Rfam assigns this 136-nucleotide sequence from Cyphellophora attinorum to the family "U4 spliceosomal RNA". Rfam classes the family as a spliceosomal small nuclear RNA. A search with the family's covariance model found it, with a score of 88 bits. The family has 177 seed sequences and 32,178 matches in Rfam 15.1. A reference for the family is Zwieb (1997), "The uRNA database", Nucleic Acids Res. NCBI's taxonomy places the organism under Eukaryota, Fungi, Chaetothyriomycetidae, Chaetothyriales, Cyphellophora. Rfam's curators write: U4 small nuclear RNA (U4 snRNA) is a component of the major U2-dependent spliceosome.
RNA sequence: GUCCAUGUGCACGGGUUUUAACUGCGCCAGUGAGGAUUUCAUCCGAGGCCAGUUUUUUGCUAGUUGAAAACUACCAAAGACCUGAUCUAUUCUGAUCUUUGAUUGGAAUAGUAAUUUCUUUCAAAUCAUCAUUGCU
Numbered sequence: 001g002u003c004c005a006u007g008u009g010c011a012c013g014g015g016u017u018u019u020a021a022c023u024g025c026g027c028c029a030g031u032g033a034g035g036a037u038u039u040c041a042u043c044c045g046a047g048g049c050c051a052g053u054u055u056u057u058u059g060c061u062a063g064u065u066g067a068a069a070a071c072u073a074c075c076a077a078a079g080a081c082c083u084g085a086u087c088u089a090u091u092c093u094g095a096u097c098u099u100u101g102a103u104u105g106g107a108a109u110a111g112u113a114a115u116u117u118c119u120u121u122c123a124a125a126u127c128a129u130c131a132u133u134g135c136u
Stems, first nucleotide, its partner, number of pairs: 020054005026049003034044003087111002090108008125136001127134002